[Rfam]
The family of this 154-nucleotide sequence from Trifolium pratense is "Small nucleolar RNA snoR2/U65". A search with the family's covariance model found it, with a score of 97 bits. Pairs were carried over by alignment from the consensus structure, which was predicted with WAR. Rfam links the family to the GO terms RNA processing and nucleolus.
RNA sequence: UGUCUGAUGCCACGUCUUUGGUAGUUACAUGCUCUAACCAAAGAUGCUAAUUGGACCAAAAUCAAUAGUGAUUUUUAUUUGUUUCGCAUUUUGAUAGGAAUCUGCUUAUCUUAUUUACUGUGAUUUUGCAUAGCCAAUUUGUGUGAUUACAUUU
Numbered sequence: 001u002g003u004c005u006g007a008u009g010c011c012a013c014g015u016c017u018u019u020g021g022u023a024g025u026u027a028c029a030u031g032c033u034c035u036a037a038c039c040a041a042a043g044a045u046g047c048u049a050a051u052u053g054g055a056c057c058a059a060a061a062u063c064a065a066u067a068g069u070g071a072u073u074u075u076u077a078u079u080u081g082u083u084u085c086g087c088a089u090u091u092u093g094a095u096a097g098g099a100a101u102c103u104g105c106u107u108a109u110c111u112u113a114u115u116u117a118c119u120g121u122g123a124u125u126u127u128g129c130a131u132a133g134c135c136a137a138u139u140u141g142u143g144u145g146a147u148u149a150c151a152u153u154u
Base pairs, nucleotide, nucleotide: 002056003055004054005053006052007051008050013046014045015044016043017042018041020039021038022037024032025031084146085145086144087143088142097135098134103130104129108124109123110122